Shown here is a 124-nucleotide RNA sequence from Alkaliphilus metalliredigens, a member of the family "SAM-I/IV (S-adenosyl methionine) riboswitch aptamer". The family has 417 seed sequences and 567 matches in Rfam 15.1. For this family Rfam cites "The aptamer core of SAM-IV riboswitches mimics the ligand-binding site of SAM-I riboswitches" (Weinberg et al., RNA, 2008). The family is grouped with related families in Rfam's "SAM clan". Pairs were carried over by alignment from the consensus structure, which is taken from published work. The source organism's lineage runs through Bacteria, Bacillati, Clostridia, Alkaliphilus and Alkaliphilus metalliredigens. The match comes from Rfam's covariance-model search (45 bits).
RNA sequence: GAAACUUAUCAAGAAUUAGGGGAGAGAGUUGACUUGAUGAUCCUAUACCAACCUACUAGAAAAAGUAAGGUGGUCCUGUUAACACACGAUAAGGGGGUAUAGUAAACCAAUAAUACGGUGAAUA
Numbered sequence: 001g002a003a004a005c006u007u008a009u010c011a012a013g014a015a016u017u018a019g020g021g022g023a024g025a026g027a028g029u030u031g032a033c034u035u036g037a038u039g040a041u042c043c044u045a046u047a048c049c050a051a052c053c054u055a056c057u058a059g060a061a062a063a064a065g066u067a068a069g070g071u072g073g074u075c076c077u078g079u080u081a082a083c084a085c086a087c088g089a090u091a092a093g094g095g096g097g098u099a100u101a102g103u104a105a106a107c108c109a110a111u112a113a114u115a116c117g118g119u120g121a122a123u124a
Stems, first nucleotide, its partner, number of pairs: 006092005015046001017045005047074003052070003055066003060119001094108002